[Rfam]
The family of this 102-nucleotide RNA from Caenorhabditis brenneri is "mir-36 microRNA precursor family".
Gene Ontology terms of the family: RISC complex and miRNA-mediated post-transcriptional gene silencing.
Clan: mir-36 clan.
Pairs were carried over by alignment from the consensus structure, which was predicted with WAR.
RNA sequence: UCAGGAAGGAAGGACCGGACCUCUGCUGUAUUUUUACCCGGUGAUAAUCACGAAAUAGAAAUAUCACCGCGGCAGAAACCAGCAAAGGUCCGAUCCAACCCU
Dot-bracket structure: ...............(((((((.(((((..(((((.(((.((((((...............)))))).).)).))))).))))).)))))))..........
Numbered sequence: 001u002c003a004g005g006a007a008g009g010a011a012g013g014a015c016c017g018g019a020c021c022u023c024u025g026c027u028g029u030a031u032u033u034u035u036a037c038c039c040g041g042u043g044a045u046a047a048u049c050a051c052g053a054a055a056u057a058g059a060a061a062u063a064u065c066a067c068c069g070c071g072g073c074a075g076a077a078a079c080c081a082g083c084a085a086a087g088g089u090c091c092g093a094u095c096c097a098a099c100c101c102u
Stems, first nucleotide, its partner, number of pairs: 016092007024084005031078005037072002039069001041067006